RNA sequence: AAAAAGGGCUUCUGCCGUGUGUGGCACGGGGGCGUGCGUUCGCCGCCUUCGCGGAAUCGACAUCAAGAGAUUUCGGAAGCACAAUUUUUGUGAGGGAGGGCUGCUGGUAACCGCUUGUUCUGGCACCCCG
Numbered sequence: 001a002a003a004a005a006g007g008g009c010u011u012c013u014g015c016c017g018u019g020u021g022u023g024g025c026a027c028g029g030g031g032g033c034g035u036g037c038g039u040u041c042g043c044c045g046c047c048u049u050c051g052c053g054g055a056a057u058c059g060a061c062a063u064c065a066a067g068a069g070a071u072u073u074c075g076g077a078a079g080c081a082c083a084a085u086u087u088u089u090g091u092g093a094g095g096g097a098g099g100g101c102u103g104c105u106g107g108u109a110a111c112c113g114c115u116u117g118u119u120c121u122g123g124c125a126c127c128c129c130g
Stems, first nucleotide, its partner, number of pairs: 008080005013026005027051008036043002052075007098128003103124005109119003
RNA: U11 spliceosomal RNA
Organism: Toxostoma redivivum